SAM riboswitch aptamer (S box leader): a 104-nucleotide RNA sequence from Rossellomorea marisflavi. Lineage of the source: Bacteria > Bacillati > Bacillota > Caryophanales > Rossellomorea. A search with the family's covariance model found it, with a score of 73 bits.
RNA sequence: ACCUUAUAAAGAGUCGGGGAAGGAAUCUGGUCCAACGAUCCCGCAGCAACCUCCAAGUGGAAGGUGCUCAUUCCAGCAGGCAACUUCAGCCUGGCAGAUAAGGG
Dot-bracket structure: .((((((.....(.((((...(((..[[[[)))......)))))((((.(((((....))).))))))...(]]]](((((.......)))))..).)))))).